The family of this 209-nucleotide sequence from Wolbachia endosymbiont of Pentalonia nigronervosa is "permuted transfer-messenger RNA". Bacterial tmRNA, also known as 10Sa RNA or SsrA, is named for its dual tRNA and mRNA-like properties. A reference for the family is Williams and Bartel (1996), "Phylogenetic analysis of tmRNA secondary structure", RNA.
RNA sequence: AGCAAUAAAAUUACCUUGUAAUAGGUGUAUUGGACCCGAGGGCAGUACUCGGCGCCUCCACCAUUUUUGUCCAUGGGGGCGAGUCAGGAUCGACAUGCAUAGUAAAGAUGGUAGCUUUGCUCGGUUAGAUACCACCGCUAAGAGUUCAUAAUUUAAAUGCAAACGAUAACGUUAGCUCCGAUUGUGGUAAUGUGGCACUUGCUGCUUAA
Numbered sequence: 001a002g003c004a005a006u007a008a009a010a011u012u013a014c015c016u017u018g019u020a021a022u023a024g025g026u027g028u029a030u031u032g033g034a035c036c037c038g039a040g041g042g043c044a045g046u047a048c049u050c051g052g053c054g055c056c057u058c059c060a061c062c063a064u065u066u067u068u069g070u071c072c073a074u075g076g077g078g079g080c081g082a083g084u085c086a087g088g089a090u091c092g093a094c095a096u097g098c099a100u101a102g103u104a105a106a107g108a109u110g111g112u113a114g115c116u117u118u119g120c121u122c123g124g125u126u127a128g129a130u131a132c133c134a135c136c137g138c139u140a141a142g143a144g145u146u147c148a149u150a151a152u153u154u155a156a157a158u159g160c161a162a163a164c165g166a167u168a169a170c171g172u173u174a175g176c177u178c179c180g181a182u183u184g185u186g187g188u189a190a191u192g193u194g195g196c197a198c199u200u201g202c203u204g205c206u207u208a209a
Stems, first nucleotide, its partner, number of pairs: 001121005014111002017108001026099003031095002036052005053081007122137004
NCBI's taxonomy places the organism under Bacteria, Pseudomonadati, Alphaproteobacteria, Wolbachieae, Wolbachia. By type it is a non-coding RNA gene.